Background:
Rfam assigns this 63-nucleotide RNA sequence from Trypanosoma brucei to the family "Trypanosomatid snoRNA TB9Cs1H1". Rfam's curators put it in the seed alignment. On this family, see Liang et al., RNA 2005: "A genome-wide analysis of C/D and H/ACA-like small nucleolar RNAs in Trypanosoma brucei reveals a trypanosome-specific pattern of rRNA modification". Rfam 15.1 lists 68 matches to the family in 15 species. Gene Ontology terms of the family: nucleolus and RNA processing.

RNA sequence: AGCACAGAAAAUGAAGCUAGUUAUGGCGUACCGCUGCUGCUCUAGUGCCGACACUGUGCGAGA
Numbered sequence: 001a002g003c004a005c006a007g008a009a010a011a012u013g014a015a016g017c018u019a020g021u022u023a024u025g026g027c028g029u030a031c032c033g034c035u036g037c038u039g040c041u042c043u044a045g046u047g048c049c050g051a052c053a054c055u056g057u058g059c060g061a062g063a
Base pairs, nucleotide, nucleotide: 002059003058004057005056006055007054016046017045018044019043020042